[Rfam]
RNA sequence: GCGCUCGCAGCGCUCACGCGUGAGCGUCAGGCAAAUCAGGCCGCGGCCGUACUUGGCCAUGAAAUUGAUCGCUUCUGGCGUGACGUGAUCGGAGGCGAGCA
Numbered sequence: 001g002c003g004c005u006c007g008c009a010g011c012g013c014u015c016a017c018g019c020g021u022g023a024g025c026g027u028c029a030g031g032c033a034a035a036u037c038a039g040g041c042c043g044c045g046g047c048c049g050u051a052c053u054u055g056g057c058c059a060u061g062a063a064a065u066u067g068a069u070c071g072c073u074u075c076u077g078g079c080g081u082g083a084c085g086u087g088a089u090c091g092g093a094g095g096c097g098a099g100c101a
Base pairs, nucleotide, nucleotide: 003058005056006055007054010027011026012025013024014023015022035050036049039047041045066101067100069098070097071096072095074093075092076091077090079087080086
RNA: Vibrio RNA AS9
Organism: Burkholderiales bacterium PBB6